[Rfam]
RNA: ZMP/ZTP riboswitch aptamer (pfl RNA motif)
RNA sequence: AGAGAUUCGUAUGACUGGCGGAAAAUGGGAGCACCCAUAGGGAGUACGAAUAAUAUGAUAAGCCGACCGCCUGGGCAACCACA
Numbered sequence: 001a002g003a004g005a006u007u008c009g010u011a012u013g014a015c016u017g018g019c020g021g022a023a024a025a026u027g028g029g030a031g032c033a034c035c036c037a038u039a040g041g042g043a044g045u046a047c048g049a050a051u052a053a054u055a056u057g058a059u060a061a062g063c064c065g066a067c068c069g070c071c072u073g074g075g076c077a078a079c080c081a082c083a
Base pairs, nucleotide, nucleotide: 005051006050007049008048009047010046011045012044015041016040017071018070019069020068021067026037027036028035029034062076063075064074